A member of the RNA family "Eukaryotic large subunit ribosomal RNA" from Fusarium longipes, 387 nucleotides of a longer RNA. Rfam links the family to the GO terms ribosome and structural constituent of ribosome. Lineage of the source: Eukaryota > Dikarya > Hypocreomycetidae > Fusarium > Fusarium sambucinum species complex. Pairs were carried over by alignment from the consensus structure, which is taken from published work.

[Rfam]
RNA sequence: GACCUCACCGCAAUGGUAAUUGAGCUUAGUACGAGAGGAACCGCUCAUUCAGAUAAUUGGUUUUUGCGGCUGUCCGACCGGGCAGUGCCGCGAAGCUACCAUCUGCUGGAUAAUGGCUGAACGCCUCUAAGUCAGAAUCCAUGCCAGAACGCGGUGAUACCACCCGCACGUAUAGAUGGACAAGAAUAGGCUUCGGCUUAGCGUCUUAGCAGGCGAUUCCUCCACGGCGCUCGAAGCGCGUCGUGGUAUUUCGCGUAUUGUAAUUUCAACACGAGCGGGGUCAAAUCCUUUGCAGACGACUUAGCUGUGCGAAACGGUCCUGUAAGCAGUAGAGUAGCCUUGUUGUUACGAUCUGCUGAGGGUAAGCCGUCCUUCGCCUCGAUUUCC
Numbered sequence: 001g002a003c004c005u006c007a008c009c010g011c012a013a014u015g016g017u018a019a020u021u022g023a024g025c026u027u028a029g030u031a032c033g034a035g036a037g038g039a040a041c042c043g044c045u046c047a048u049u050c051a052g053a054u055a056a057u058u059g060g061u062u063u064u065u066g067c068g069g070c071u072g073u074c075c076g077a078c079c080g081g082g083c084a085g086u087g088c089c090g091c092g093a094a095g096c097u098a099c100c101a102u103c104u105g106c107u108g109g110a111u112a113a114u115g116g117c118u119g120a121a122c123g124c125c126u127c128u129a130a131g132u133c134a135g136a137a138u139c140c141a142u143g144c145c146a147g148a149a150c151g152c153g154g155u156g157a158u159a160c161c162a163c164c165c166g167c168a169c170g171u172a173u174a175g176a177u178g179g180a181c182a183a184g185a186a187u188a189g190g191c192u193u194c195g196g197c198u199u200a201g202c203g204u205c206u207u208a209g210c211a212g213g214c215g216a217u218u219c220c221u222c223c224a225c226g227g228c229g230c231u232c233g234a235a236g237c238g239c240g241u242c243g244u245g246g247u248a249u250u251u252c253g254c255g256u257a258u259u260g261u262a263a264u265u266u267c268a269a270c271a272c273g274a275g276c277g278g279g280g281u282c283a284a285a286u287c288c289u290u291u292g293c294a295g296a297c298g299a300c301u302u303a304g305c306u307g308u309g310c311g312a313a314a315c316g317g318u319c320c321u322g323u324a325a326g327c328a329g330u331a332g333a334g335u336a337g338c339c340u341u342g343u344u345g346u347u348a349c350g351a352u353c354u355g356c357u358g359a360g361g362g363u364a365a366g367c368c369g370u371c372c373u374u375c376g377c378c379u380c381g382a383u384u385u386c387c
Stems, first nucleotide, its partner, number of pairs: 005157007014146004019049001021047005050105005058098003065092005070085006107141003114134005163279005169273001283385005288304002292300001309377005315369003319362002326356004331352001334349005